[Rfam]
Small nucleolar RNA R30/Z108: a 97-nucleotide RNA from Cuscuta europaea. Rfam links the family to the GO terms RNA processing and nucleolus. A reference for the family is Marker et al. (2002), "Experimental RNomics. Identification of 140 Candidates for Small Non-Messenger RNAs in the Plant Arabidopsis thaliana", Curr Biol.

RNA sequence: AUCGAUUGCGAUGAGGAUUCCAAGCUCCCUCUUCUGAUUAAGGUUGAGGAAAUUUGCAGGCAGAAUCGAACCAUUAACUUUAGCCACCACUGAGCAA
Number, nucleotide and partner (000 for none) at each position: 001a000002u000003c000004g000005a000006u097007u096008g095009c094010g000011a000012u000013g000014a000015g000016g000017a000018u000019u000020c000021c000022a000023a000024g000025c000026u000027c000028c000029c000030u000031c000032u000033u000034c000035u000036g000037a000038u000039u000040a000041a000042g000043g000044u000045u000046g000047a000048g000049g000050a000051a000052a000053u000054u000055u000056g000057c000058a000059g000060g000061c000062a000063g000064a000065a000066u000067c000068g000069a000070a000071c000072c000073a000074u000075u000076a000077a000078c000079u000080u000081u000082a000083g000084c000085c000086a000087c000088c000089a000090c000091u000092g000093a000094g009095c008096a007097a006